RNA sequence: UUGUUCGUGGUUCGUGAACCUCCCACGCAAAAAACUAAGGAUAU
Numbered sequence: 001u002u003g004u005u006c007g008u009g010g011u012u013c014g015u016g017a018a019c020c021u022c023c024c025a026c027g028c029a030a031a032a033a034a035c036u037a038a039g040g041a042u043a044u
Base pairs, nucleotide, nucleotide: 006027007026008025009024010023015037016036
Notes
PreQ1 (pre queuosine) riboswitch aptamer: a 44-nucleotide sequence from Muribacter muris. The pairing is the family consensus, mapped onto this sequence. This family is a bacterial riboswitch that binds to the metabolite preQ1, an intermediate in the biosynthesis of the modified nucleoside queuosine from GTP. One example of this riboswitch is located in the leader of the Bacillus subtilis ykvJKLM (queCDEF) operon which encodes four genes necessary for queuosine production. PreQ1 binding to the riboswitch aptamer is thought to induce premature transcription termination within the leader to down-regulate expression of these genes. Rfam links the family to the GO term queuosine biosynthetic process. The family has 43 seed sequences and 873 matches in Rfam 15.1. The literature on the family includes a 2004 paper in J Biol Chem by Reader et al., "Identification of four genes necessary for biosynthesis of the modified nucleoside queuosine".